[Rfam]
RNA: Small nucleolar RNA SNORD90
RNA sequence: AAAUAUGUUUUCUGAGUGUCUAGUGAUGAGUUUCAUAGGGCAGAUUCUGAGGUGAAAAUUCAUCAUUGAUCGUCCUAUUGUGAAAUCUGAAGACACUUGAAAACCU
Numbered sequence: 001a002a003a004u005a006u007g008u009u010u011u012c013u014g015a016g017u018g019u020c021u022a023g024u025g026a027u028g029a030g031u032u033u034c035a036u037a038g039g040g041c042a043g044a045u046u047c048u049g050a051g052g053u054g055a056a057a058a059u060u061c062a063u064c065a066u067u068g069a070u071c072g073u074c075c076u077a078u079u080g081u082g083a084a085a086u087c088u089g090a091a092g093a094c095a096c097u098u099g100a101a102a103a104c105c106u
Stems, first nucleotide, its partner, number of pairs: 013099009030086007037076004043070001046069002049066001051064005